This 255-nucleotide sequence from Paenibacillus sp. PvR098 belongs to the Rfam family "BsrG". On this family, see Saito et al., Gene 2008: "Novel small RNA-encoding genes in the intergenic regions of Bacillus subtilis". Rfam 15.1 lists 614 matches to the family in 343 species. The organism belongs to Paenibacillus, within Bacteria. The family's consensus secondary structure was predicted with WAR. From the family's description: bsrE, bsrG and bsrH pair through intermolecular interactions with antisense sRNAs.

RNA sequence: UACAAUAGAAUCGGCUUUCUCAAGGGCGGUUAGCUCAUCUCCUGGAAAGGAGGUGAUGCUAUGGAAGUUAAGGAUGCAUUAAGCUUGAUGUUCAUGUUCGGUAUGUUCAUCCUGACCUUACUUUCCUACCUCAAAAAAAAGUAGACCUCCCUUGAGCCUACCAGCCACGGAGGUCUACCUUCUGUUACUUGGUGAUGCUGAUCGCCCUUGAAAGGCAAUCUAUUGUACGGACCGUGGAUGCUCGCGACAUCUGCG
Numbered sequence: 001u002a003c004a005a006u007a008g009a010a011u012c013g014g015c016u017u018u019c020u021c022a023a024g025g026g027c028g029g030u031u032a033g034c035u036c037a038u039c040u041c042c043u044g045g046a047a048a049g050g051a052g053g054u055g056a057u058g059c060u061a062u063g064g065a066a067g068u069u070a071a072g073g074a075u076g077c078a079u080u081a082a083g084c085u086u087g088a089u090g091u092u093c094a095u096g097u098u099c100g101g102u103a104u105g106u107u108c109a110u111c112c113u114g115a116c117c118u119u120a121c122u123u124u125c126c127u128a129c130c131u132c133a134a135a136a137a138a139a140a141g142u143a144g145a146c147c148u149c150c151c152u153u154g155a156g157c158c159u160a161c162c163a164g165c166c167a168c169g170g171a172g173g174u175c176u177a178c179c180u181u182c183u184g185u186u187a188c189u190u191g192g193u194g195a196u197g198c199u200g201a202u203c204g205c206c207c208u209u210g211a212a213a214g215g216c217a218a219u220c221u222a223u224u225g226u227a228c229g230g231a232c233c234g235u236g237g238a239u240g241c242u243c244g245c246g247a248c249a250u251c252u253g254c255g
Base pairs, nucleotide, nucleotide: 001227002226003225004224005223007221008220009219011217012200013199014198015197017195019156020155021154022153023152024151025150026149028146030144031143035056036055037054039052040051041050042049043048063125064124065123066122067121068120076091077090078089100117101116102115164180204216205215206214233255234254235253236252237251238250239249240248242246